[Rfam]
RNA sequence: CCUGGGUGUGGCGCUGGUGGCCGGUGUGGUACAGAGAAGCCGGCUUGUUUACUGCCCACCCAGG
Numbered sequence: 001c002c003u004g005g006g007u008g009u010g011g012c013g014c015u016g017g018u019g020g021c022c023g024g025u026g027u028g029g030u031a032c033a034g035a036g037a038a039g040c041c042g043g044c045u046u047g048u049u050u051a052c053u054g055c056c057c058a059c060c061c062a063g064g
Stems, first nucleotide, its partner, number of pairs: 001064007010056001013055002016049002019045007026032002
Shown here is a 64-nucleotide sequence from Rhadina sibilatrix, a member of the family "MAT2A 3'UTR stem loop F".
A search with the family's covariance model found it, with a score of 51 bits.
The family has 26 seed sequences and 403 matches in Rfam 15.1.
The family's RNA type in Rfam is cis-regulatory element.
Lineage of the source: Eukaryota > Gnathostomata > Dinosauria > Australaves > Rhadina.
A reference for the family is Parker et al. (2011), "New families of human regulatory RNA structures identified by comparative analysis of vertebrate genomes", Genome Res.